[Rfam]
Nucleotides: 132
Base pairs, nucleotide, nucleotide: 004100005099006098007019008018009017047074049072050071051070053068054067056065057064076091077090078089079088080087102132103131104130105129106128107127108126110125111124112123113122114121115120
Number, partner (000 for none) and nucleotide at each position: 001000g002000a003000g004100u005099u006098g007019g008018c009017a010000c011000a012000a013000g014000g015000g016000c017009u018008g019007c020000a021000u022000u023000c024000a025000c026000a027000a028000c029000u030000a031000c032000c033000a034000c035000a036000a037000a038000c039000c040000a041000c042000a043000u044000a045000a046000a047074g048000c049072g050071c051070g052000a053068c054067c055000u056065u057064c058000a059000a060000c061000g062000a063000c064057g065056a066000a067054g068053g069000c070051u071050g072049c073000a074047c075000u076091u077090c078089c079088c080087g081000a082000u083000a084000g085000a086000a087080c088079g089078g090077g091076a092000c093000c094000u095000g096000g097000a098006c099005a100004a101000a102132g103131g104130c105129g106128u107127c108126c109000u110125c111124g112123c113122u114121a115120g116000g117000u118000g119000a120115c121114u122113a123112g124111c125110g126108g127107g128106a129105c130104g131103c132102c
A member of the RNA family "Pseudomonas sRNA P11", 132 nucleotides long. For this family Rfam cites "Identification of 17 Pseudomonas aeruginosa sRNAs and prediction of sRNA-encoding genes in 10 diverse pathogens using the bioinformatic tool sRNAPredict2" (Livny et al., Nucleic Acids Res, 2006). From the family's description: This small RNA (sRNA) was computationally identified in the genome of the opportunistic pathogen Pseudomonas aeruginosa and its expression verified by northern blot analysis. P11 is located between a putative threonine protein kinase and putative nitrate reductase and appears to be conserved in several Pseudomonas species. P11 has a predicted Rho independent terminator at the 3'end but the function of P11 is unknown.